Shown here is a 130-nucleotide sequence from Mus musculus, a member of the family "Small nucleolar RNA SNORA24". Gene Ontology terms of the family: RNA processing and nucleolus. Pairs were carried over by alignment from the consensus structure, which was predicted with RNAfold. From the family's description: ACA24 is a member of the H/ACA class of snoRNA that guide the sites of modification of uridines to pseudouridines. Taxonomically the source falls in Mus (Eukaryota, Eumetazoa, Amniota, Mammalia). Rfam classes the family as an H/ACA-box small nucleolar RNA.
RNA sequence: UUUAGUGUACCUUUGGAACCUAGCUGCUGUGGUGGCUUUCUUUUCUAGCCACAGAAGAGCAGAUUCUUGUUUAUUGUCAAAGCUGUCACCAUUUAAUUUGUAUCAGAUUCUAACUUGCACAGUAAACUUC
Numbered sequence: 001u002u003u004a005g006u007g008u009a010c011c012u013u014u015g016g017a018a019c020c021u022a023g024c025u026g027c028u029g030u031g032g033u034g035g036c037u038u039u040c041u042u043u044u045c046u047a048g049c050c051a052c053a054g055a056a057g058a059g060c061a062g063a064u065u066c067u068u069g070u071u072u073a074u075u076g077u078c079a080a081a082g083c084u085g086u087c088a089c090c091a092u093u094u095a096a097u098u099u100g101u102a103u104c105a106g107a108u109u110c111u112a113a114c115u116u117g118c119a120c121a122g123u124a125a126a127c128u129u130c
Stems, first nucleotide, its partner, number of pairs: 002055002005052003015041004020035003024031001069127003074122003078117003083106003088101002091098001